[Rfam]
RNA: MIR394 microRNA precursor family
RNA sequence: CUUACAGAGUUUAUUGGCAUUCUGUCCACCUCCAAUCAUGGAAACAAAAAAACCCUUGUCUUUUUGCUCUCUGAUCUCAUCUUUCAUGGAGGUGGGCAAACUGCCAACUGAGCUCUGUUGG
Number, nucleotide and partner (000 for none) at each position: 001c000002u000003u000004a000005c000006a000007g000008a000009g000010u000011u111012u000013a000014u107015u106016g105017g104018c103019a102020u000021u000022c000023u098024g097025u096026c095027c094028a093029c092030c091031u090032c089033c088034a000035a000036u000037c000038a000039u000040g000041g000042a000043a000044a000045c000046a000047a000048a000049a000050a000051a000052a000053c000054c000055c000056u000057u000058g000059u000060c000061u000062u000063u000064u000065u000066g000067c000068u000069c000070u000071c000072u000073g000074a000075u000076c000077u000078c000079a000080u000081c000082u000083u000084u000085c000086a000087u000088g033089g032090a031091g030092g029093u028094g027095g026096g025097c024098a023099a000100a000101c000102u019103g018104c017105c016106a015107a014108c000109u000110g000111a011112g000113c000114u000115c000116u000117g000118u000119u000120g000121g000